[Rfam]
RNA sequence: GUAUUCGGUGGAGCACGAAGCAUAAAGACAAGAGAACCGGAGGAUAUGACCUUCCAAACCUCCCCCUCCCCUCUCACCCGGUCGGGUGAAUCACCUCAACACGGGUGGCGAGUAAGGCUAUUCGCCGGGCAUUCUGGCUCCCGACAACCCCAUAACGCAUUCGGCCCCCGGCCGGGACGGCAAUCCCGGGCGAGGGCCUGACCACAGCGGAAGCGAACCCCUUCCCC
Numbered sequence: 001g002u003a004u005u006c007g008g009u010g011g012a013g014c015a016c017g018a019a020g021c022a023u024a025a026a027g028a029c030a031a032g033a034g035a036a037c038c039g040g041a042g043g044a045u046a047u048g049a050c051c052u053u054c055c056a057a058a059c060c061u062c063c064c065c066c067u068c069c070c071c072u073c074u075c076a077c078c079c080g081g082u083c084g085g086g087u088g089a090a091u092c093a094c095c096u097c098a099a100c101a102c103g104g105g106u107g108g109c110g111a112g113u114a115a116g117g118c119u120a121u122u123c124g125c126c127g128g129g130c131a132u133u134c135u136g137g138c139u140c141c142c143g144a145c146a147a148c149c150c151c152a153u154a155a156c157g158c159a160u161u162c163g164g165c166c167c168c169c170g171g172c173c174g175g176g177a178c179g180g181c182a183a184u185c186c187c188g189g190g191c192g193a194g195g196g197c198c199u200g201a202c203c204a205c206a207g208c209g210g211a212a213g214c215g216a217a218c219c220c221c222u223u224c225c226c227c
Stems, first nucleotide, its partner, number of pairs: 008205003074089006102136004163198005169192002172190001174187004209225005
RNA: Streptomyces sRNA 4677